[Rfam]
RNA: mir-1684 microRNA precursor family
Organism: Armadillidium nasatum
RNA sequence: ACUUUCGAAGGGACAGCCACCCUUCCUCUUUCAGGCUCUAGUUUAUUCUAGAGCCUGAAAGAGGAAAGGAGGCUGUCCCUUCGAAAGU
Numbered sequence: 001a002c003u004u005u006c007g008a009a010g011g012g013a014c015a016g017c018c019a020c021c022c023u024u025c026c027u028c029u030u031u032c033a034g035g036c037u038c039u040a041g042u043u044u045a046u047u048c049u050a051g052a053g054c055c056u057g058a059a060a061g062a063g064g065a066a067a068g069g070a071g072g073c074u075g076u077c078c079c080u081u082c083g084a085a086a087g088u
Base pairs, nucleotide, nucleotide: 002087003086006083007082009080010079011078012077013076014075015074016073017072018071020069021068023066024065025064026063027062028061029060030059031058032057034055035054037052038051039050040049
Dot-bracket structure: .((..((.((((((((((.((.((((((((((.((.((((........)))).)).)))))))))).)).)))))))))).))..)).